Record summary
This 247-nucleotide part of an RNA from Rhodopila globiformis belongs to the Rfam family "Bacterial large subunit ribosomal RNA".

RNA sequence: GGAGAUUUGCGAGGAUUUGUCCCUAGUACGAGAGGACCGGGAUGAACAGACCUCUGGUGCACCGGUUGUCAUGCCAAUGGCACCGCCGGGUAGCUAUGUCUGGACGGGAUAACCGCUGAAAGCAUCUAAGCGGGAAACCCACCUCUAAACCAGAUCUCCCCGAGGGCCGUGCAAGACCAGCACGUCGAUAGGCCGGAUGUGCAAGCGCGGCAACGCGCGCAGCUGACCGGUCCUAAUCGCCCGAGCG
Numbered sequence: 001g002g003a004g005a006u007u008u009g010c011g012a013g014g015a016u017u018u019g020u021c022c023c024u025a026g027u028a029c030g031a032g033a034g035g036a037c038c039g040g041g042a043u044g045a046a047c048a049g050a051c052c053u054c055u056g057g058u059g060c061a062c063c064g065g066u067u068g069u070c071a072u073g074c075c076a077a078u079g080g081c082a083c084c085g086c087c088g089g090g091u092a093g094c095u096a097u098g099u100c101u102g103g104a105c106g107g108g109a110u111a112a113c114c115g116c117u118g119a120a121a122g123c124a125u126c127u128a129a130g131c132g133g134g135a136a137a138c139c140c141a142c143c144u145c146u147a148a149a150c151c152a153g154a155u156c157u158c159c160c161c162g163a164g165g166g167c168c169g170u171g172c173a174a175g176a177c178c179a180g181c182a183c184g185u186c187g188a189u190a191g192g193c194c195g196g197a198u199g200u201g202c203a204a205g206c207g208c209g210g211c212a213a214c215g216c217g218c219g220c221a222g223c224u225g226a227c228c229g230g231u232c233c234u235a236a237u238c239g240c241c242c243g244a245g246c247g
Stems, first nucleotide, its partner, number of pairs: 001159008011145004017045007047102005055096003062089005067082006106140003113133005164242004168184005189235003192231005199223001202219001205218005
Dot-bracket structure: ((((((((..((((..(((((((...............))))))).(((((...(((....(((((((((((....))))))..)))))....))).)))))...(((....(((((...........)))))....))).))))......))))))))....(((((((((.......)))))....((((((((..(..(..(((((....))))))...)...))))).)))...)))).....